This 26-nucleotide RNA from Zophobihabitans entericus belongs to the Rfam family "L25-Gammaproteobacteria ribosomal protein leader". The match comes from Rfam's covariance-model search (40 bits). On this family, see Eckert and Weinberg, BMC Microbiol 2020: "Discovery of 20 novel ribosomal leader candidates in bacteria and archaea". By type it is a cis-regulatory leader.
RNA sequence: UCAAUUGCUGGGUCGCCUGUAAUUGA
Number, nucleotide and partner (000 for none) at each position: 001u026002c025003a024004a023005u022006u021007g020008c019009u000010g017011g016012g000013u000014c000015g000016c011017c010018u000019g008020u007021a006022a005023u004024u003025g002026a001